The record is a 60-nucleotide RNA sequence from Monodelphis domestica, which matches "mir-7386 microRNA precursor family" in Rfam.
NCBI's taxonomy places the organism under Eukaryota, Chordata, Sarcopterygii, Mammalia, Monodelphis.

[Rfam]
RNA sequence: CACUUGGAUGAGGCGCACUAUUUUGUGAAUACUGCCAAAAUAAUGACCUUAUCCAAGGAG
Numbered sequence: 001c002a003c004u005u006g007g008a009u010g011a012g013g014c015g016c017a018c019u020a021u022u023u024u025g026u027g028a029a030u031a032c033u034g035c036c037a038a039a040a041u042a043a044u045g046a047c048c049u050u051a052u053c054c055a056a057g058g059a060g
Base pairs, nucleotide, nucleotide: 003057004056005055006054007053008052009051010050011049012048013047019042020041021040022039023038024037025036027035